This 72-nucleotide sequence from Apium graveolens belongs to the Rfam family "Plastid-ycf2 5UTR RNA". The family's RNA type in Rfam is cis-regulatory element. The source organism's lineage runs through Eukaryota, Tracheophyta, Gunneridae, Apiineae and Apium. A search with the family's covariance model found it, with a score of 67 bits. From the family's description: Plastid ycf2 is a non-coding RNA (ncRNA) recognised in plastids. It was found in the prime untranslated region (5UTR) of ycf2 genes, it presents a tRNA-like motif which suggests it can be involved in mRNA maturation, particularly involved in defining the precise 5' end of the transcript.
[Rfam]
RNA sequence: GUGCACCCAGUAUGAAUUGAACCUACGAAUUCUCCAAUUAUGAGUUCACUUUAACCAUUCAGCCAUGGAUGC
Numbered sequence: 001g002u003g004c005a006c007c008c009a010g011u012a013u014g015a016a017u018u019g020a021a022c023c024u025a026c027g028a029a030u031u032c033u034c035c036a037a038u039u040a041u042g043a044g045u046u047c048a049c050u051u052u053a054a055c056c057a058u059u060c061a062g063c064c065a066u067g068g069a070u071g072c
Base pairs, nucleotide, nucleotide: 003072004071005070007068008067010026011025012024014022040066041065042064044063045062046061048059